[Rfam]
Nucleotides: 401
Stems, first nucleotide, its partner, number of pairs: 052153001054151003057073001059071004090105001092103001095100001109136005115130002181229003186221004191216003195213001198212003202208002253301004258297003263294002266291003271286003274282002304322004309316002326400004336393006355373004360368002
Number, partner (000 for none) and nucleotide at each position: 001000c002000c003000u004000c005000a006000c007000g008000g009000g010000a011000g012000g013000g014000a015000g016000a017000g018000c019000g020000g021000c022000c023000u024000g025000g026000g027000g028000u029000g030000a031000g032000g033000u034000u035000g036000c037000c038000g039000u040000g041000c042000g043000u044000g045000g046000u047000g048000c049000u050000g051000c052153g053000g054151u055150g056149u057073c058000g059071c060070g061069u062068g063000g064000a065000u066000g067000g068062c069061g070060c071059g072000a073057g074000c075000g076000g077000g078000c079000c080000g081000a082000g083000g084000a085000u086000g087000u088000g089000u090105g091000u092103g093000g094000g095100u096000g097000u098000g099000u100095g101000g102000g103092u104000g105090u106000g107000a108000g109136c110135g111134u112133g113132c114000g115130u116129g117000g118000g119000g120000c121000g122000u123000g124000c125000a126000a127000g128000g129116c130115g131000a132113g133112u134111g135110c136109g137000u138000g139000a140000c141000a142000c143000c144000c145000c146000c147000c148000u149056a150055c151054g152000g153052c154000c155000c156000u157000c158000c159000c160000c161000c162000c163000g164000u165000c166000u167000a168000c169000a170000c171000g172000u173000u174000g175000a176000u177000c178000u179000u180000a181229u182228u183227u184000g185000a186221u187220c188219g189218g190000g191216u192215c193214g194000u195213g196000a197000c198212c199211c200210c201000c202208g203207c204000c205000c206000c207203g208202c209000c210200g211199g212198g213195c214193c215192g216191g217000c218189c219188c220187g221186a222000g223000a224000u225000g226000a227183a228182a229181a230000g231000c232000c233000c234000c235000c236000c237000u238000c239000c240000u241000g242000c243000g244000a245000a246000g247000c248000c249000c250000g251000c252000g253301c254300g255299g256298g257000c258297g259296c260295u261000g262000u263294g264293c265000a266291g267290c268289g269000a270000g271286g272285c273284c274282c275281c276000c277000g278000g279000g280000c281275g282274g283000c284273g285272g286271c287000g288000g289268c290267g291266c292000c293264g294263c295260g296259g297258c298256c299255c300254c301253g302000g303000a304322g305321c306320c307319g308000a309316u310315c311000c312000g313000c314000g315310g316309g317000c318000c319307c320306g321305g322304c323000g324000c325000u326400c327399a328398g329397a330000a331000a332000u333000g334000a335000u336393g337392a338391a339390u340389u341388g342000a343000u344000c345000a346000g347000a348000u349000a350000g351000a352000c353000g354000a355373g356372g357371c358370c359000g360368g361367g362000c363000u364000u365000g366000u367361c368360c369000c370358g371357g372356c373355c374000g375000c376000u377000g378000a379000u380000u381000a382000u383000c384000g385000a386000g387000g388341c389340g390339a391338u392337u393336c394000u395000g396000a397329u398328c399327u400326g401000a
Record summary
A member of the RNA family "Small Cajal body-specific RNA 2" from Pipistrellus kuhlii, 401 nucleotides long. The family's RNA type in Rfam is small Cajal body RNA. The family has 20 seed sequences and 612 matches in Rfam 15.1. A search with the family's covariance model found it, with a score of 350 bits. Gene Ontology terms of the family: nucleolus and RNA processing. The literature on the family includes a 2004 paper in Curr Biol by Tycowski et al., "Guide RNAs with 5' caps and novel box C/D snoRNA-like domains for modification of snRNAs in metazoa".